[Rfam]
RNA sequence: UGUUUUUUAUCGCUGAGUCCUUGAAUAGAAAAGGAACGGGGGAACCAACGGAAGUGAUGAUCCUUAUAAUUGAUCAUGACUUCAAGGGGUGAAUCUCGGGGCAAGUAAGCUUGCUCCCGAGUAGGGCGACUCUCACGCCCGAAUCCGACAGCUAACCUCGUAAGCGUAUUGAGAGAGGCAAC
Numbered sequence: 001u002g003u004u005u006u007u008u009a010u011c012g013c014u015g016a017g018u019c020c021u022u023g024a025a026u027a028g029a030a031a032a033g034g035a036a037c038g039g040g041g042g043a044a045c046c047a048a049c050g051g052a053a054g055u056g057a058u059g060a061u062c063c064u065u066a067u068a069a070u071u072g073a074u075c076a077u078g079a080c081u082u083c084a085a086g087g088g089g090u091g092a093a094u095c096u097c098g099g100g101g102c103a104a105g106u107a108a109g110c111u112u113g114c115u116c117c118c119g120a121g122u123a124g125g126g127c128g129a130c131u132c133u134c135a136c137g138c139c140c141g142a143a144u145c146c147g148a149c150a151g152c153u154a155a156c157c158u159c160g161u162a163a164g165c166g167u168a169u170u171g172a173g174a175g176a177g178g179c180a181a182c
Stems, first nucleotide, its partner, number of pairs: 011166004018035005036161006046086001087146003095121007124140004
Dot-bracket structure: ..........((((...(((((........)))))((((((....(.......................................)(((.....(((((((.............)))))))..((((.........))))...))).........)))))).))))................
c-di-AMP riboswitch aptamer (ydaO/yuaA leader): a 182-nucleotide RNA sequence from Paenibacillus sp. IHBB 10380. About the family: This family represents a conserved RNA structure found upstream of the ydaO and yuaA genes in Bacillus subtilis and related genes in other bacteria. The organism belongs to Paenibacillus, within Bacteria.